[Rfam]
A member of the RNA family "Potassium channel RNA editing signal" from Crocodylus porosus, 114 nucleotides long. By type it is a cis-regulatory element. It scores 111 bits against the family's covariance model. Lineage of the source: Eukaryota > Deuterostomia > Chordata > Dipnotetrapodomorpha > Crocodylus.
RNA sequence: GUGGGCUAUGGGGACAUGCACCCAAUCACCAUUGGGGGAAAGAUUGUGGGGUCCCUCUGUGCUAUUGCUGGGGUGCUAACCAUUGCUCUUCCUGUGCCUGUGAUAGUCUCCAAU
Numbered sequence: 001g002u003g004g005g006c007u008a009u010g011g012g013g014a015c016a017u018g019c020a021c022c023c024a025a026u027c028a029c030c031a032u033u034g035g036g037g038g039a040a041a042g043a044u045u046g047u048g049g050g051g052u053c054c055c056u057c058u059g060u061g062c063u064a065u066u067g068c069u070g071g072g073g074u075g076c077u078a079a080c081c082a083u084u085g086c087u088c089u090u091c092c093u094g095u096g097c098c099u100g101u102g103a104u105a106g107u108c109u110c111c112a113a114u
Stems, first nucleotide, its partner, number of pairs: 001114002004111002008107002011104001014101003018097004037077002040074001049063002